[Rfam]
RNA sequence: AUCUGGAGAGCGGCGCUACGCGCCCACCGAAGGGGAUUUCCCGCCAGCGGCCAGCAGUUGCCGCGCGCGGGAUCGAAACUCUCAGGUACAUGGACAGAU
Numbered sequence: 001a002u003c004u005g006g007a008g009a010g011c012g013g014c015g016c017u018a019c020g021c022g023c024c025c026a027c028c029g030a031a032g033g034g035g036a037u038u039u040c041c042c043g044c045c046a047g048c049g050g051c052c053a054g055c056a057g058u059u060g061c062c063g064c065g066c067g068c069g070g071g072a073u074c075g076a077a078a079c080u081c082u083c084a085g086g087u088a089c090a091u092g093g094a095c096a097g098a099u
Stems, first nucleotide, its partner, number of pairs: 001099005012024004026087003029083002033081003
Annotation:
This 99-nucleotide RNA from Caballeronia glathei belongs to the Rfam family "Glycine riboswitch aptamer".